[Rfam]
RNA sequence: AGAGCUCUCGCUUCAACAGUGAUUGAACGGAGUCCU
Numbered sequence: 001a002g003a004g005c006u007c008u009c010g011c012u013u014c015a016a017c018a019g020u021g022a023u024u025g026a027a028c029g030g031a032g033u034c035c036u
Stems, first nucleotide, its partner, number of pairs: 001036002004033005010028001012027005017021001

Iron response element I: a 36-nucleotide RNA sequence from Polypterus senegalus.
Gene Ontology term of the family: response to iron ion.
It scores 37 bits against the family's covariance model.
By type it is a cis-regulatory element.
Taxonomically the source falls in Polypterus (Eukaryota, Metazoa, Craniata, Euteleostomi).
Pairs were carried over by alignment from the consensus structure, which is taken from published work.
Rfam 15.1 lists 6,829 matches to the family in 599 species.